The family of this 264-nucleotide RNA from Anaeromicrobium sediminis is "Bacterial large signal recognition particle RNA".
The organism belongs to Anaeromicrobium, within Bacteria.
From the family's description: The signal recognition particle (SRP) is a universally conserved ribonucleoprotein involved in the co-translational targeting of proteins to membranes.
The base pairs follow the family's consensus structure, which is taken from published work.
A search with the family's covariance model found it, with a score of 209 bits.
Rfam classes the family as a non-coding RNA gene.

[Rfam]
RNA sequence: CUGUGCUAGAUGGGAAGUUGGCGGUGUCCUGUAACCUGCAAUCCGCCUUAGCAGGGUCGAACGCCUAUUAGAGGCCUGUCGUUGUGAGGUCUGCCCCGUACAAGUGGCGAUGAGAUUUGGGUCUUGUGCAAUGAAAGCCUAUGAACCUCGUCAGAUCCGGAAGGAAGCAGCGAUAAGUAGUCACUUUCAUGUGCCACAAGGGUGCCUGAGUUGAGUUAACUAUACGGGUCACGCUUGUAACGGCUUGUCGAUAUAGGUGCACAG
Dot-bracket structure: ((((((..(((((((.(((...))).))))....(((((...........)))))))).....(((((....(((...((((((((((...((..(((((...(((((.....(((((((((((((((((.((((((.((((.....((((....(((....)))....))))...)))).)..)))))))...))))))...)))))))))..))).))..)))))..))..))))))))))...)))...))))).))))))
Numbered sequence: 001c002u003g004u005g006c007u008a009g010a011u012g013g014g015a016a017g018u019u020g021g022c023g024g025u026g027u028c029c030u031g032u033a034a035c036c037u038g039c040a041a042u043c044c045g046c047c048u049u050a051g052c053a054g055g056g057u058c059g060a061a062c063g064c065c066u067a068u069u070a071g072a073g074g075c076c077u078g079u080c081g082u083u084g085u086g087a088g089g090u091c092u093g094c095c096c097c098g099u100a101c102a103a104g105u106g107g108c109g110a111u112g113a114g115a116u117u118u119g120g121g122u123c124u125u126g127u128g129c130a131a132u133g134a135a136a137g138c139c140u141a142u143g144a145a146c147c148u149c150g151u152c153a154g155a156u157c158c159g160g161a162a163g164g165a166a167g168c169a170g171c172g173a174u175a176a177g178u179a180g181u182c183a184c185u186u187u188c189a190u191g192u193g194c195c196a197c198a199a200g201g202g203u204g205c206c207u208g209a210g211u212u213g214a215g216u217u218a219a220c221u222a223u224a225c226g227g228g229u230c231a232c233g234c235u236u237g238u239a240a241c242g243g244c245u246u247g248u249c250g251a252u253a254u255a256g257g258u259g260c261a262c263a264g
Stems, first nucleotide, its partner, number of pairs: 001264006009058003012030004017025003035055005064257005073249003079243010092231002096227005104220002106217003114212009123200006129191002132189005137182001139180004148173004156165003